[Rfam]
RNA sequence: GAGUAUAUUGUUGUGGCGAGCCUAAGACCUUUAUGGUCGGAGGCGUAGGGAAACCAACAAGUCCGCAAGCUUUUGCUGAGGGACGGGGUCUUAAGGGCCCGGAGUCACAGCGAUAUGACCCGAAACCGGGCGAUCUAGGCCAGGGCAAGGUGAAGUCCCUCAUCAGAGGGAUGGAGGCCUGCAGAGGUGCUGCCGUUCGAAGCGCUCUUCUGACCUUGGUCUAGGGGUGAAAGGCCAAUCGAGCCCGGAGAUAGCUGGUU
Numbered sequence: 001g002a003g004u005a006u007a008u009u010g011u012u013g014u015g016g017c018g019a020g021c022c023u024a025a026g027a028c029c030u031u032u033a034u035g036g037u038c039g040g041a042g043g044c045g046u047a048g049g050g051a052a053a054c055c056a057a058c059a060a061g062u063c064c065g066c067a068a069g070c071u072u073u074u075g076c077u078g079a080g081g082g083a084c085g086g087g088g089u090c091u092u093a094a095g096g097g098c099c100c101g102g103a104g105u106c107a108c109a110g111c112g113a114u115a116u117g118a119c120c121c122g123a124a125a126c127c128g129g130g131c132g133a134u135c136u137a138g139g140c141c142a143g144g145g146c147a148a149g150g151u152g153a154a155g156u157c158c159c160u161c162a163u164c165a166g167a168g169g170g171a172u173g174g175a176g177g178c179c180u181g182c183a184g185a186g187g188u189g190c191u192g193c194c195g196u197u198c199g200a201a202g203c204g205c206u207c208u209u210c211u212g213a214c215c216u217u218g219g220u221c222u223a224g225g226g227g228u229g230a231a232a233g234g235c236c237a238a239u240c241g242a243g244c245c246c247g248g249a250g251a252u253a254g255c256u257g258g259u260u
Base pairs, nucleotide, nucleotide: 005116006115007114008113009112010111011110012109013108014107015106016105017104020044021043022042023041026038027037028036029035048055049054061084062083063082064081068077069076070075087099088098089097090096119258120257122255126248127247128246129245130244131243135224136223137222138221139220140219141218142217143216144215145214146212148180149179150178151177155172156171157170158169159168160167161166184209185208186207187206189205190204192203193202226236227235228234
Description:
Rfam assigns this 260-nucleotide part of an RNA from Methanococcus aeolicus to the family "Archaeal large subunit ribosomal RNA". The base pairs follow the family's consensus structure, which is taken from published work. Its Rfam clan is "LSU clan". Lineage of the source: Archaea > Methanobacteriota > Methanococcaceae > Methanococcus > Methanococcus aeolicus.